Rfam assigns this 222-nucleotide RNA sequence to the family "IS605-orfB-I RNA".

RNA sequence: ACCUUAUAUAGAUGUAGUGACGCAAGACAGUGACGCAUUUCCCUGUAAGGUGGUGUUUCAAUAGAAGUAUAAACAAUAAGUCUUAUUGUGAGGCUACGAGUCGAAAUAAGGUGAGUUUAUAUGGAAUAGGUUAACCGUAAGACCUUGAAUUGAGAUAUUCUAAAAUUGACCUAGGAAGGUAAACACAAUUUCGCGAUUUUCGCUCUUUCUAGUUACGGUUCU
Numbered sequence: 001a002c003c004u005u006a007u008a009u010a011g012a013u014g015u016a017g018u019g020a021c022g023c024a025a026g027a028c029a030g031u032g033a034c035g036c037a038u039u040u041c042c043c044u045g046u047a048a049g050g051u052g053g054u055g056u057u058u059c060a061a062u063a064g065a066a067g068u069a070u071a072a073a074c075a076a077u078a079a080g081u082c083u084u085a086u087u088g089u090g091a092g093g094c095u096a097c098g099a100g101u102c103g104a105a106a107u108a109a110g111g112u113g114a115g116u117u118u119a120u121a122u123g124g125a126a127u128a129g130g131u132u133a134a135c136c137g138u139a140a141g142a143c144c145u146u147g148a149a150u151u152g153a154g155a156u157a158u159u160c161u162a163a164a165a166u167u168g169a170c171c172u173a174g175g176a177a178g179g180u181a182a183a184c185a186c187a188a189u190u191u192c193g194c195g196a197u198u199u200u201c202g203c204u205c206u207u208u209c210u211a212g213u214u215a216c217g218g219u220u221c222u
Base pairs, nucleotide, nucleotide: 001051002050003049004048005047006046007045008044010040011039012038013037014036015035017034018033020031021030022028067122068121069120070119071118072117073116074115081111082110083109084108085107086106087105092102093101128145129144130143131142132141134219135218136217137216138215139214140166147160148159149158150157171212172211173210174209175208176207177206178205179204

The base pairs follow the family's consensus structure, which is taken from published work.